[Rfam]
RNA sequence: GAACGGUUCGUGUCAACCGGACGCGGCAGGGAUGGUGAACGUGGCGGUUUUUCCGGUUUCACGCCAUGGCCAACGAAACGGCAGACGAGCGCCCCACCUGUCCGGACC
Numbered sequence: 001g002a003a004c005g006g007u008u009c010g011u012g013u014c015a016a017c018c019g020g021a022c023g024c025g026g027c028a029g030g031g032a033u034g035g036u037g038a039a040c041g042u043g044g045c046g047g048u049u050u051u052u053c054c055g056g057u058u059u060c061a062c063g064c065c066a067u068g069g070c071c072a073a074c075g076a077a078a079c080g081g082c083a084g085a086c087g088a089g090c091g092c093c094c095c096a097c098c099u100g101u102c103c104g105g106a107c108c
Base pairs, nucleotide, nucleotide: 006107007106008105009104011023012022013021014020025102026101027100028099029098030097034093035092036091037090040068041067042066043065044064045063046062069082070081071080
A member of the RNA family "Rhizobiales sRNA Atu_At1" from Rhizobium sp. RU20A, 108 nucleotides long.
It is annotated as a small RNA.
The match comes from Rfam's covariance-model search (110 bits).
Rfam 15.1 lists 200 matches to the family in 177 species.
Pairs were carried over by alignment from the consensus structure, which was predicted with CMfinder.
Taxonomically the source falls in Rhizobium (Bacteria, Alphaproteobacteria, Hyphomicrobiales, Rhizobiaceae).